[Rfam]
Background:
The family of this 92-nucleotide sequence from Desulfonatronum thiosulfatophilum is "c-di-GMP-I riboswitch aptamer". Rfam's curators write: GEMM was predicted in a large-scale screen for bacterial structured RNA regulatory elements. The literature on the family includes a 2007 paper in Nucleic Acids Res by Weinberg et al., "Identification of 22 candidate structured RNAs in bacteria using the CMfinder comparative genomics pipeline".
RNA sequence: GUCUGACAAGGGCAAAGCACUCCGAAAGGAUGCGACGCAAAGCCACCGGCCUACGUUUUGCCAAGGCAGAAUAAGGUAGCGGGGACGCCGGA
Numbered sequence: 001g002u003c004u005g006a007c008a009a010g011g012g013c014a015a016a017g018c019a020c021u022c023c024g025a026a027a028g029g030a031u032g033c034g035a036c037g038c039a040a041a042g043c044c045a046c047c048g049g050c051c052u053a054c055g056u057u058u059u060g061c062c063a064a065g066g067c068a069g070a071a072u073a074a075g076g077u078a079g080c081g082g083g084g085a086c087g088c089c090g091g092a
Stems, first nucleotide, its partner, number of pairs: 012038002017033003021030003043084002046082003049077003056071006